[Rfam]
RNA sequence: UUGCUUUCCUAAGUACUAGUGCCGCAGGAGUUAGGUUUGUGUCCGCAAUGCCUCCUGCUGCCCAAGUGCUUAUUAAAGCGA
Numbered sequence: 001u002u003g004c005u006u007u008c009c010u011a012a013g014u015a016c017u018a019g020u021g022c023c024g025c026a027g028g029a030g031u032u033a034g035g036u037u038u039g040u041g042u043c044c045g046c047a048a049u050g051c052c053u054c055c056u057g058c059u060g061c062c063c064a065a066g067u068g069c070u071u072a073u074u075a076a077a078g079c080g081a
Stems, first nucleotide, its partner, number of pairs: 001081007010072008019063001024058007